[Rfam]
RNA: Purine riboswitch aptamer
RNA sequence: AAAACAUGAAUAUUACAGCCGUCGUAUAAUAUCGGGAAUAUGGCCCGAAAGUUUCUACCUAGCUACCGUAAAUGGCUUGACUACGAGGCGUUUUAAUAAAAGG
Numbered sequence: 001a002a003a004a005c006a007u008g009a010a011u012a013u014u015a016c017a018g019c020c021g022u023c024g025u026a027u028a029a030u031a032u033c034g035g036g037a038a039u040a041u042g043g044c045c046c047g048a049a050a051g052u053u054u055c056u057a058c059c060u061a062g063c064u065a066c067c068g069u070a071a072a073u074g075g076c077u078u079g080a081c082u083a084c085g086a087g088g089c090g091u092u093u094u095a096a097u098a099a100a101a102g103g
Stems, first nucleotide, its partner, number of pairs: 018089003022086005030050001032048005059079001061077005